[Rfam]
RNA: mir-290 microRNA precursor family
Organism: Camelus dromedarius
RNA sequence: GUAACACUCAAAACAUGGCGGCACUCCCCUUUGGAGAACAGAAAGUGCCCCCACAGUUUGAGUGCCAC
Numbered sequence: 001g002u003a004a005c006a007c008u009c010a011a012a013a014c015a016u017g018g019c020g021g022c023a024c025u026c027c028c029c030u031u032u033g034g035a036g037a038a039c040a041g042a043a044a045g046u047g048c049c050c051c052c053a054c055a056g057u058u059u060g061a062g063u064g065c066c067a068c
Stems, first nucleotide, its partner, number of pairs: 005064008016053003020049006028041001